[Rfam]
RNA sequence: CUUCACCGAGCCCAGCCAGGCCGGCUCGGUCCGAUUCUGCCCGUAGGUGGCCAGUACCGCCUGCGCCUC
Numbered sequence: 001c002u003u004c005a006c007c008g009a010g011c012c013c014a015g016c017c018a019g020g021c022c023g024g025c026u027c028g029g030u031c032c033g034a035u036u037c038u039g040c041c042c043g044u045a046g047g048u049g050g051c052c053a054g055u056a057c058c059g060c061c062u063g064c065g066c067c068u069c
Stems, first nucleotide, its partner, number of pairs: 015021002025065001027063001032059002037054003041050003